[Rfam]
RNA sequence: UUGCAAGUUCAAGGCUAAAGCAGAAGUGCUCACAGUGCGGCCUGUCAGACUCCCAACAAAUCUGCAAAUUCUGCU
Numbered sequence: 001u002u003g004c005a006a007g008u009u010c011a012a013g014g015c016u017a018a019a020g021c022a023g024a025a026g027u028g029c030u031c032a033c034a035g036u037g038c039g040g041c042c043u044g045u046c047a048g049a050c051u052c053c054c055a056a057c058a059a060a061u062c063u064g065c066a067a068a069u070u071c072u073g074c075u
Base pairs, nucleotide, nucleotide: 013042014041015040016039019075020074021073022072023071024070025069026038027037028036046064047063048062049061051059
Dot-bracket structure: ............[[[[..((((((((((.......)))]]]]...((((.(.......).))))....)))))))

Shown here is a 75-nucleotide RNA from Alligator mississippiensis, a member of the family "Mammalian CPEB3 ribozyme". It scores 38 bits against the family's covariance model. Pairs were carried over by alignment from the consensus structure, which is taken from published work.